[Rfam]
RNA sequence: UUAACUCAAAUCUGUAUGCAAUUGGAACAGCGCCCCUAGCGGCAGACGUAGGCAAACGUUCCAAUUCCAUACAAAUUUGCAUUA
Numbered sequence: 001u002u003a004a005c006u007c008a009a010a011u012c013u014g015u016a017u018g019c020a021a022u023u024g025g026a027a028c029a030g031c032g033c034c035c036c037u038a039g040c041g042g043c044a045g046a047c048g049u050a051g052g053c054a055a056a057c058g059u060u061c062c063a064a065u066u067c068c069a070u071a072c073a074a075a076u077u078u079g080c081a082u083u084a
Base pairs, nucleotide, nucleotide: 008078009077010076011075013073014072015071016070018068020066021065022064023063024062025061026060027059028058034052035051039047
Record summary:
This 84-nucleotide sequence from Bombyx mori belongs to the Rfam family "mir-2807 microRNA precursor family". Its family is annotated with miRNA-mediated post-transcriptional gene silencing and RISC complex in the Gene Ontology. A reference for the family is Liu et al. (2010), "MicroRNAs of Bombyx mori identified by Solexa sequencing", BMC Genomics. The source organism's lineage runs through Eukaryota, Ecdysozoa, Dicondylia, Neolepidoptera and Bombyx. A search with the family's covariance model found it, with a score of 62 bits.